[Rfam]
RNA sequence: CCGGCUCCGGUUCACCCAGGCGCAGCCAUAGGCGCUGAUGGGACCCGGCGGCC
Numbered sequence: 001c002c003g004g005c006u007c008c009g010g011u012u013c014a015c016c017c018a019g020g021c022g023c024a025g026c027c028a029u030a031g032g033c034g035c036u037g038a039u040g041g042g043a044c045c046c047g048g049c050g051g052c053c
Stems, first nucleotide, its partner, number of pairs: 003053003007048004015042004019036005

Notes
This 53-nucleotide RNA sequence from Pseudonocardia bannensis belongs to the Rfam family "L31-Actinobacteria ribosomal protein leader". Clan: Ribosomal Protein L31 Leader clan. Lineage of the source: Bacteria > Bacillati > Actinomycetes > Pseudonocardiaceae > Pseudonocardia.